[Rfam]
RNA sequence: AACAAACCGAUGAUUGGGAAUCAAACAUACAAAGGCAACUUCUAGAGAGCGGGGAUGGUGGAAACUUGCAGGCAUGCGGUAUGCAAAUGGACCCAUGAGGGCUUAAGGAAAGCUUGUACAAGUAUUUAAGACGCAAUGUCAGCGUUAAAGGACAGAGAAUGUGAUUGCAUUUUCAAAGAGAGAAUAGUCAAAAGACUAUUAAAAAAGGUGGUACCGUAGGUUAAUGCUUGUCCUUUUG
Numbered sequence: 001a002a003c004a005a006a007c008c009g010a011u012g013a014u015u016g017g018g019a020a021u022c023a024a025a026c027a028u029a030c031a032a033a034g035g036c037a038a039c040u041u042c043u044a045g046a047g048a049g050c051g052g053g054g055a056u057g058g059u060g061g062a063a064a065c066u067u068g069c070a071g072g073c074a075u076g077c078g079g080u081a082u083g084c085a086a087a088u089g090g091a092c093c094c095a096u097g098a099g100g101g102c103u104u105a106a107g108g109a110a111a112g113c114u115u116g117u118a119c120a121a122g123u124a125u126u127u128a129a130g131a132c133g134c135a136a137u138g139u140c141a142g143c144g145u146u147a148a149a150g151g152a153c154a155g156a157g158a159a160u161g162u163g164a165u166u167g168c169a170u171u172u173u174c175a176a177a178g179a180g181a182g183a184a185u186a187g188u189c190a191a192a193a194g195a196c197u198a199u200u201a202a203a204a205a206a207g208g209u210g211g212u213a214c215c216g217u218a219g220g221u222u223a224a225u226g227c228u229u230g231u232c233c234u235u236u237u238g
Stems, first nucleotide, its partner, number of pairs: 007100002015095004026083005039071002049069005102130006132144003183200007205235004216231005